The family of this 117-nucleotide RNA from Oryza brachyantha is "Small nucleolar RNA Z173". Pairs were carried over by alignment from the consensus structure, which was predicted with PFOLD. Its family is annotated with nucleolus and RNA processing in the Gene Ontology. A search with the family's covariance model found it, with a score of 73 bits. Lineage of the source: Eukaryota > Liliopsida > Oryzeae > Oryzinae > Oryza.
[Rfam]
RNA sequence: GCAGCGCCGAUAAUGAGUUUACAAUGUACUAGGUUAAAUUCUGAUCGAUGUGAGCCUCUGUGGUUCGAAUGAUGAGUUGAUGGCAAACCGUGUGUUCCUCUUGAUUUGAGGCGCCGU
Number, nucleotide and partner (000 for none) at each position: 001g000002c116003a000004g114005c113006g112007c111008c110009g000010a000011u000012a000013a000014u000015g000016a000017g000018u000019u000020u000021a000022c000023a000024a000025u000026g000027u000028a000029c000030u000031a000032g000033g000034u000035u000036a000037a000038a000039u000040u000041c000042u000043g000044a000045u000046c000047g000048a000049u000050g000051u000052g000053a000054g000055c000056c000057u000058c000059u000060g000061u000062g000063g000064u000065u000066c000067g000068a000069a000070u000071g000072a000073u000074g000075a000076g000077u000078u000079g000080a000081u000082g000083g000084c000085a000086a000087a000088c000089c000090g000091u000092g000093u000094g000095u000096u000097c000098c000099u000100c000101u000102u000103g000104a000105u000106u000107u000108g000109a000110g008111g007112c006113g005114c004115c000116g002117u000